This 66-nucleotide RNA sequence from Scleropages formosus belongs to the Rfam family "MAT2A 3'UTR stem loop E". It scores 50 bits against the family's covariance model. Pairs were carried over by alignment from the consensus structure, which is taken from published work. The organism belongs to Scleropages, within Eukaryota. The family has 28 seed sequences and 337 matches in Rfam 15.1.
Nucleotides: 066
Base pairs, nucleotide, nucleotide: 002065003064004063006062007061008060009059014056015055016054017053019045020044021043022042023041024040025039026032027031
Number, partner (000 for none) and nucleotide at each position: 001000c002065c003064a004063g005000u006062g007061u008060u009059c010000c011000c012000u013000u014056g015055u016054g017053g018000c019045c020044c021043a022042a023041a024040g025039u026032g027031u028000c029000c030000u031027a032026c033000a034000g035000a036000a037000a038000a039025g040024c041023u042022u043021u044020g045019g046000g047000a048000u049000g050000c051000a052000c053017c054016c055015a056014c057000a058000u059009g060008g061007g062006c063004c064003u065002g066000c